[Rfam]
RNA sequence: UUGUUUUCUGUUGGAGCAUCAUCAAGAUUCACAAAAAGCAUUUUAAGGUUUUUUUUUUUUUAAUUGAAUUGAUCAAUCAGCGCUUUAUGAAUAUGUUUUUGAGAAUCUUGAUGAUGCUGCAGUGGCAAUAAA
Numbered sequence: 001u002u003g004u005u006u007u008c009u010g011u012u013g014g015a016g017c018a019u020c021a022u023c024a025a026g027a028u029u030c031a032c033a034a035a036a037a038g039c040a041u042u043u044u045a046a047g048g049u050u051u052u053u054u055u056u057u058u059u060u061u062a063a064u065u066g067a068a069u070u071g072a073u074c075a076a077u078c079a080g081c082g083c084u085u086u087a088u089g090a091a092u093a094u095g096u097u098u099u100u101g102a103g104a105a106u107c108u109u110g111a112u113g114a115u116g117c118u119g120c121a122g123u124g125g126c127a128a129u130a131a132a
Stems, first nucleotide, its partner, number of pairs: 010123004015118016032101006
RNA: mir-172 microRNA precursor family